[Rfam]
RNA sequence: GAAAAAUGUGGAGGGGCCAUAGGAGAAGCAUUCAUAUCACGACCCCUGUCAGGUAAUGCCUAGUAAUACCUGCAAAUUAUGCU
Dot-bracket structure: ............((((.(..[[.[.[[(...........)).))))...((((((...........))))))....]].].]]
Numbered sequence: 001g002a003a004a005a006a007u008g009u010g011g012a013g014g015g016g017c018c019a020u021a022g023g024a025g026a027a028g029c030a031u032u033c034a035u036a037u038c039a040c041g042a043c044c045c046c047u048g049u050c051a052g053g054u055a056a057u058g059c060c061u062a063g064u065a066a067u068a069c070c071u072g073c074a075a076a077u078u079a080u081g082c083u
Stems, first nucleotide, its partner, number of pairs: 013046004018041001021083002024080001026078002028040001050072006
This 83-nucleotide sequence from Alligator sinensis belongs to the Rfam family "Mammalian CPEB3 ribozyme".
It scores 47 bits against the family's covariance model.
About the family: The mammalian CPEB3 ribozyme is a self cleaving RNA located in the second intron of the CPEB3 gene which belongs to a family of genes regulating messenger RNA polyadenylation. This ribozyme is highly conserved and found only in mammals. The CPEB3 ribozyme is structurally and biochemically related to the human hepatitis delta virus (HDV) ribozyme and the HDV ribozyme is proposed to have arisen from the human transcriptome.